[Rfam]
RNA: Glycine riboswitch aptamer
Organism: Rhodobacteraceae bacterium EhC02
RNA sequence: GGCGUCAGAUCGGGAGAACCGGGAAACCGGUGCCGAAGGAGCAACCGCCCCGGAAACUCUCAGGCCCAAGGACCGGUCGGACAUG
Numbered sequence: 001g002g003c004g005u006c007a008g009a010u011c012g013g014g015a016g017a018a019c020c021g022g023g024a025a026a027c028c029g030g031u032g033c034c035g036a037a038g039g040a041g042c043a044a045c046c047g048c049c050c051c052g053g054a055a056a057c058u059c060u061c062a063g064g065c066c067c068a069a070g071g072a073c074c075g076g077u078c079g080g081a082c083a084u085g
Stems, first nucleotide, its partner, number of pairs: 006080001008078006019030004032065003035061002039059003045053002
Dot-bracket structure: .....(.((((((.....((((....)))).(((((..(((...((.....))...))))).))).......)))))).).....